[Rfam]
Shown here is a 213-nucleotide RNA sequence from Miscanthus lutarioriparius, a member of the family "MIR6217 microRNA precursor family". It scores 126 bits against the family's covariance model. Its family is annotated with miRNA-mediated post-transcriptional gene silencing and RISC complex in the Gene Ontology.
RNA sequence: UGGCUACAAAAUAACUUAUUCUGUAGCCACUUUGAGUUACGAUAAUUACUAUGUUAAUUUACGAUAUUACAGUAACUCCUUGCUAAUUGGUUUACUAUAACGUUAUGGUAAAUAUCCCCAUGUGUUAUAGUAACACAACUAUCGUAAAUUAGUAUAUAAAAUUAUCGUAAAUAAAGAAUGAAGGGGGCUACUGAAUAACUUAUUUUAUAGCUG
Numbered sequence: 001u002g003g004c005u006a007c008a009a010a011a012u013a014a015c016u017u018a019u020u021c022u023g024u025a026g027c028c029a030c031u032u033u034g035a036g037u038u039a040c041g042a043u044a045a046u047u048a049c050u051a052u053g054u055u056a057a058u059u060u061a062c063g064a065u066a067u068u069a070c071a072g073u074a075a076c077u078c079c080u081u082g083c084u085a086a087u088u089g090g091u092u093u094a095c096u097a098u099a100a101c102g103u104u105a106u107g108g109u110a111a112a113u114a115u116c117c118c119c120a121u122g123u124g125u126u127a128u129a130g131u132a133a134c135a136c137a138a139c140u141a142u143c144g145u146a147a148a149u150u151a152g153u154a155u156a157u158a159a160a161a162u163u164a165u166c167g168u169a170a171a172u173a174a175a176g177a178a179u180g181a182a183g184g185g186g187g188c189u190a191c192u193g194a195a196u197a198a199c200u201u202a203u204u205u206u207a208u209a210g211c212u213g
Base pairs, nucleotide, nucleotide: 001213002212003211004210005209006208008206009205010204011203012202013201014200016198017197018196019195020194021193023191024190025189026188027187028186030184031183032182033181037177038176046174047173050169051168052167053166055164056163057162058161059160060159065158072157073156074155080147081146082145083144088141089140090139091138092137093132094131095130096129097128098127099126100125101124102123103122107117108116